Shown here is a 136-nucleotide RNA from Humibacter ginsenosidimutans, a member of the family "ZMP/ZTP riboswitch aptamer (pfl RNA motif)". The family's consensus secondary structure is taken from published work.
RNA sequence: GGAGCGCGUCGCAACUGGCGUAUCGGCGUGACUUCGGGCAUCCGGAAUCCGUCGCGGAUGGUUCACCAUCGGGGAGCGACGGACAGCUUUUCGAGAUUAUCGAGGGCGGAUUCGGCCGCGCGCCUGGGCCGACGCG
Numbered sequence: 001g002g003a004g005c006g007c008g009u010c011g012c013a014a015c016u017g018g019c020g021u022a023u024c025g026g027c028g029u030g031a032c033u034u035c036g037g038g039c040a041u042c043c044g045g046a047a048u049c050c051g052u053c054g055c056g057g058a059u060g061g062u063u064c065a066c067c068a069u070c071g072g073g074g075a076g077c078g079a080c081g082g083a084c085a086g087c088u089u090u091u092c093g094a095g096a097u098u099a100u101c102g103a104g105g106g107c108g109g110a111u112u113c114g115g116c117c118g119c120g121c122g123c124c125u126g127g128g129c130c131g132a133c134g135c136g
Stems, first nucleotide, its partner, number of pairs: 004084001007081006015073002017124005058069004113131005